Rfam assigns this 122-nucleotide RNA from Helianthus annuus to the family "MIR396 microRNA precursor family".
On this family, see Sunkar et al., Plant Cell 2005: "Cloning and characterization of microRNAs from rice".
Gene Ontology terms of the family: miRNA-mediated post-transcriptional gene silencing and RISC complex.
It scores 92 bits against the family's covariance model.
RNA sequence: CUUUCUGUUCUUCCACAGCUUUCUUGAACUGCAUGGUUCUAUCUUGAUCUAUUGGAUCUGUGUUUGUGUUUUUGGUUUGAUCAAUCUUUGCAGUUCAAUAAAGCUGUGGGAAGAUAGAGACA
Numbered sequence: 001c002u003u004u005c006u007g008u009u010c011u012u013c014c015a016c017a018g019c020u021u022u023c024u025u026g027a028a029c030u031g032c033a034u035g036g037u038u039c040u041a042u043c044u045u046g047a048u049c050u051a052u053u054g055g056a057u058c059u060g061u062g063u064u065u066g067u068g069u070u071u072u073u074g075g076u077u078u079g080a081u082c083a084a085u086c087u088u089u090g091c092a093g094u095u096c097a098a099u100a101a102a103g104c105u106g107u108g109g110g111a112a113g114a115u116a117g118a119g120a121c122a
Stems, first nucleotide, its partner, number of pairs: 003119005013109003017105006024098004029093005